The family of this 361-nucleotide part of an RNA from Syntrophobacter fumaroxidans is "Bacterial large subunit ribosomal RNA". Pairs were carried over by alignment from the consensus structure, which is taken from published work. Lineage of the source: Bacteria > Pseudomonadati > Thermodesulfobacteriota > Syntrophobacterales > Syntrophobacter fumaroxidans.
RNA sequence: UGAGAGAACCCUGUUUAAGGAACUCGGCAAAAUGACACCGUAACUUCGGGAGAAGGUGUGCCCUCAUCAGGUGAAAAGACUUGCUUUUGGAGCCGAAGGGGGUUGCAGAGAAGAGGCGGUAGCGACUGUUUACUAAAAACACAGGACUCUGCUAAAUCGCAAGAUGACGUAUAGGGUCUGACGCCUGCCCGGUGCUGGAAGGUUAAGGGGAGAUGUUAUCGCAAGAGAAGCGUUGAACCGAAGCCCCAGUAAACGGCGGCCGUAACUAUAACGGUCCUAAGGUAGCGAAAUUCCUUGUCGGGUAAGUUCCGACCUGCACGAAUGGCGUAACGACUUCCGCGCUGUCUCAAACAGGGACUCA
Numbered sequence: 001u002g003a004g005a006g007a008a009c010c011c012u013g014u015u016u017a018a019g020g021a022a023c024u025c026g027g028c029a030a031a032a033u034g035a036c037a038c039c040g041u042a043a044c045u046u047c048g049g050g051a052g053a054a055g056g057u058g059u060g061c062c063c064u065c066a067u068c069a070g071g072u073g074a075a076a077a078g079a080c081u082u083g084c085u086u087u088u089g090g091a092g093c094c095g096a097a098g099g100g101g102g103u104u105g106c107a108g109a110g111a112a113g114a115g116g117c118g119g120u121a122g123c124g125a126c127u128g129u130u131u132a133c134u135a136a137a138a139a140c141a142c143a144g145g146a147c148u149c150u151g152c153u154a155a156a157u158c159g160c161a162a163g164a165u166g167a168c169g170u171a172u173a174g175g176g177u178c179u180g181a182c183g184c185c186u187g188c189c190c191g192g193u194g195c196u197g198g199a200a201g202g203u204u205a206a207g208g209g210g211a212g213a214u215g216u217u218a219u220c221g222c223a224a225g226a227g228a229a230g231c232g233u234u235g236a237a238c239c240g241a242a243g244c245c246c247c248a249g250u251a252a253a254c255g256g257c258g259g260c261c262g263u264a265a266c267u268a269u270a271a272c273g274g275u276c277c278u279a280a281g282g283u284a285g286c287g288a289a290a291u292u293c294c295u296u297g298u299c300g301g302g303u304a305a306g307u308u309c310c311g312a313c314c315u316g317c318a319c320g321a322a323u324g325g326c327g328u329a330a331c332g333a334c335u336u337c338c339g340c341g342c343u344g345u346c347u348c349a350a351a352c353a354g355g356g357a358c359u360c361a
Base pairs, nucleotide, nucleotide: 001361002360003359004358009356010355011354012353013352014351015350016349018347019346020345035059036058037057038056039055044049060103061102062101063100064099065098104108116340117339118338119337121335122334123332124331127141128140129139144179145178146177147176148175149174150173151172152169156165157164158163182327183326184325185324187257188256189255192254193253194250195249196248197247198246201245202244203243207239208238212234213233214232215231216230219226220225258276259275260274261273262272263271277281287314297313298312299311300310301309302308